The family of this 150-nucleotide RNA from Desulfobulbus propionicus is "FMN riboswitch aptamer (RFN element)".
NCBI's taxonomy places the organism under Bacteria, Thermodesulfobacteriota, Desulfobulbaceae, Desulfobulbus, Desulfobulbus propionicus.
About the family: The RFN element is a highly conserved domain that is found frequently in the 5'-untranslated regions of prokaryotic mRNAs that encode for flavin mononucleotide (FMN) biosynthesis and transport proteins.
Pairs were carried over by alignment from the consensus structure, which is taken from published work.
[Rfam]
RNA sequence: GCCUAUUCUCAGGGCAGGGUGCAAUUCCCUACCGGCGGUAUGUCCACCCUGUGGACGAGCCCGCGAGCGCCUGCCGCGUUUGGGCAGGGUCAAGCAGAUCCGGUGAGAAGCCGGAGCCGACGGUGAUAGUCCGGAUGGGAGAGAAUGAGG
Numbered sequence: 001g002c003c004u005a006u007u008c009u010c011a012g013g014g015c016a017g018g019g020u021g022c023a024a025u026u027c028c029c030u031a032c033c034g035g036c037g038g039u040a041u042g043u044c045c046a047c048c049c050u051g052u053g054g055a056c057g058a059g060c061c062c063g064c065g066a067g068c069g070c071c072u073g074c075c076g077c078g079u080u081u082g083g084g085c086a087g088g089g090u091c092a093a094g095c096a097g098a099u100c101c102g103g104u105g106a107g108a109a110g111c112c113g114g115a116g117c118c119g120a121c122g123g124u125g126a127u128a129g130u131c132c133g134g135a136u137g138g139g140a141g142a143g144a145a146u147g148a149g150g
Base pairs, nucleotide, nucleotide: 004147005146006145007144008143009142010141017029018028019027031130032129033119034118035064036063037062038061059117060116067095068094099115100114101113102112103111121133122132123131